Group II catalytic intron D1-D4-3: a 166-nucleotide RNA from Serratia symbiotica. The source organism's lineage runs through Bacteria, Pseudomonadati, Pseudomonadota, Gammaproteobacteria and Serratia symbiotica. The match comes from Rfam's covariance-model search (42 bits).
[Rfam]
RNA sequence: CUUGUGGUGAGUGGGUGCUUGAAGAAAGUGUGGAUCAUAACUGUGCCCUGACAAACCGGAACCUAAUAGGCGUCAUCCUCGGUUGGUGAAGCCAGCAACUGAUCGCAAAGGCUAUCCCAUCAAGAACUGGGGCUAAAUUGGGUAGGGAAAGCGAUCGGCCUUACCC
Numbered sequence: 001c002u003u004g005u006g007g008u009g010a011g012u013g014g015g016u017g018c019u020u021g022a023a024g025a026a027a028g029u030g031u032g033g034a035u036c037a038u039a040a041c042u043g044u045g046c047c048c049u050g051a052c053a054a055a056c057c058g059g060a061a062c063c064u065a066a067u068a069g070g071c072g073u074c075a076u077c078c079u080c081g082g083u084u085g086g087u088g089a090a091g092c093c094a095g096c097a098a099c100u101g102a103u104c105g106c107a108a109a110g111g112c113u114a115u116c117c118c119a120u121c122a123a124g125a126a127c128u129g130g131g132g133c134u135a136a137a138u139u140g141g142g143u144a145g146g147g148a149a150a151g152c153g154a155u156c157g158g159c160c161u162u163a164c165c166c
Stems, first nucleotide, its partner, number of pairs: 002015002028166001030164003035158002041151002044148001046147005062142006075134001077132007085113003091106002094103001